A member of the RNA family "Histidine operon leader" from Pasteurella multocida, 128 nucleotides long.
Its family is annotated with histidine biosynthetic process in the Gene Ontology.
RNA sequence: AUCACCAUCUACCCUGAUUAUCUUUCGGGUAUUUUGUGAUGCUUGGAAGAUAACAAAUCUUCCGAGUGUGCGAUAAAAUGACGAACAAUAUAAACCUCUCGGAAGCCAUUUCGAGAGGUUUUUUUAUC
Numbered sequence: 001a002u003c004a005c006c007a008u009c010u011a012c013c014c015u016g017a018u019u020a021u022c023u024u025u026c027g028g029g030u031a032u033u034u035u036g037u038g039a040u041g042c043u044u045g046g047a048a049g050a051u052a053a054c055a056a057a058u059c060u061u062c063c064g065a066g067u068g069u070g071c072g073a074u075a076a077a078a079u080g081a082c083g084a085a086c087a088a089u090a091u092a093a094a095c096c097u098c099u100c101g102g103a104a105g106c107c108a109u110u111u112c113g114a115g116a117g118g119u120u121u122u123u124u125u126a127u128c
Stems, first nucleotide, its partner, number of pairs: 006041003010031001013029005042066008088125001090123001092121012

Background: By type it is a cis-regulatory leader. The sequence is in the family's curated seed alignment. About the family: At least 6 amino acid operons are known to be regulated by attenuation. In each a leader sequence of 150-200 bp is found upstream of the first gene in the operon. This leader sequence can assume two different secondary structures known as the terminator and the anti-terminator structure.